[Rfam]
RNA sequence: AACCCCCCGUGUGGCGGCAUCUCGCCCAACUCCCCCAGGGCCGGAAGGCAGCAAGGGUAAGUGAGCUCUGUCGGGUGCAUGGGGGGCCUUU
Numbered sequence: 001a002a003c004c005c006c007c008c009g010u011g012u013g014g015c016g017g018c019a020u021c022u023c024g025c026c027c028a029a030c031u032c033c034c035c036c037a038g039g040g041c042c043g044g045a046a047g048g049c050a051g052c053a054a055g056g057g058u059a060a061g062u063g064a065g066c067u068c069u070g071u072c073g074g075g076u077g078c079a080u081g082g083g084g085g086g087c088c089u090u091u
Stems, first nucleotide, its partner, number of pairs: 001090002005086001006083006012075001015073005021065005032057003040049003
Bacterial small signal recognition particle RNA: a 91-nucleotide sequence from Nocardioides psychrotolerans. Pairs were carried over by alignment from the consensus structure, which is taken from published work. By type it is a non-coding RNA gene. The match comes from Rfam's covariance-model search (59 bits). The organism belongs to Nocardioides, within Bacteria.